[Rfam]
RNA sequence: CAUUUAGUAGAUGACAUCGAGCAAUCGUUGGUAUUUAUUAAAGAGCACUUCAUUAAAGCAGCGUUUCGCCGUGGCUACACCGAGACCCUGCUUUUUUUG
Numbered sequence: 001c002a003u004u005u006a007g008u009a010g011a012u013g014a015c016a017u018c019g020a021g022c023a024a025u026c027g028u029u030g031g032u033a034u035u036u037a038u039u040a041a042a043g044a045g046c047a048c049u050u051c052a053u054u055a056a057a058g059c060a061g062c063g064u065u066u067c068g069c070c071g072u073g074g075c076u077a078c079a080c081c082g083a084g085a086c087c088c089u090g091c092u093u094u095u096u097u098u099g
Stems, first nucleotide, its partner, number of pairs: 003042011015030002018027002055094007063086006071080003

Background:
This 99-nucleotide RNA sequence from Limosilactobacillus fermentum belongs to the Rfam family "23S methyl RNA motif". Pairs were carried over by alignment from the consensus structure, which is taken from published work.